[Rfam]
RNA sequence: AGACAAGGUAGAGGCGCACCGCCUAUCAGUAAGCCAGCCGAGGUUGACCCCCGAAGACGCUGGCCCAAAGGAGCCGGUGCCGAAGUGAAGCGGGCGUCAUCCCGGUUUGCUGGGGUUGUGUUAAACAGGCACAACACUGCCAUAGUGAUCUCUGUUAGGACGACAGGUUCAGAUUAACUAUGGAGCGCUACUGAAAGG
Numbered sequence: 001a002g003a004c005a006a007g008g009u010a011g012a013g014g015c016g017c018a019c020c021g022c023c024u025a026u027c028a029g030u031a032a033g034c035c036a037g038c039c040g041a042g043g044u045u046g047a048c049c050c051c052c053g054a055a056g057a058c059g060c061u062g063g064c065c066c067a068a069a070g071g072a073g074c075c076g077g078u079g080c081c082g083a084a085g086u087g088a089a090g091c092g093g094g095c096g097u098c099a100u101c102c103c104g105g106u107u108u109g110c111u112g113g114g115g116u117u118g119u120g121u122u123a124a125a126c127a128g129g130c131a132c133a134a135c136a137c138u139g140c141c142a143u144a145g146u147g148a149u150c151u152c153u154g155u156u157a158g159g160a161c162g163a164c165a166g167g168u169u170c171a172g173a174u175u176a177a178c179u180a181u182g183g184a185g186c187g188c189u190a191c192u193g194a195a196a197g198g
Stems, first nucleotide, its partner, number of pairs: 007192005016080006023073002033064006084111006091104004112138002115135008140183007
RNA: Lysine riboswitch aptamer